[Rfam]
RNA: LasI 5' UTR ROSE like thermometer
RNA sequence: AGCCUAGCAAGGGUCCGGGUUCACCGAAAUCUAUCUCAUUUGCUAGUUAUAAAAUUAUGAAAUUUGCAUAAAUUCUUCAGCUUCCUAUUUGGAGGAAGUGAAGAUGAUCG
Dot-bracket structure: ...(((((((((...(((.....)))...)))........))))))......(.(((((.......))))).)((((((.((((((......))))))))))))......